The family of this 108-nucleotide RNA from Clostridium carboxidivorans is "SAM riboswitch aptamer (S box leader)". A search with the family's covariance model found it, with a score of 95 bits.

RNA sequence: UUCUUAUCUAGAGAGGCUGAGGGACUGGCCCUAUGACGCCCAGCAACCUGAAUAACAUUUUUGUUCAAAGGUGCUAAUUCCAGCAGGUUAAAUCCUGAAAGAUGAGAA
Numbered sequence: 001u002u003c004u005u006a007u008c009u010a011g012a013g014a015g016g017c018u019g020a021g022g023g024a025c026u027g028g029c030c031c032u033a034u035g036a037c038g039c040c041c042a043g044c045a046a047c048c049u050g051a052a053u054a055a056c057a058u059u060u061u062u063g064u065u066c067a068a069a070g071g072u073g074c075u076a077a078u079u080c081c082a083g084c085a086g087g088u089u090a091a092a093u094c095c096u097g098a099a100a101g102a103u104g105a106g107a108a
Stems, first nucleotide, its partner, number of pairs: 001108008013041001015040003021031003025083004042075004047071002049067006079100001084097004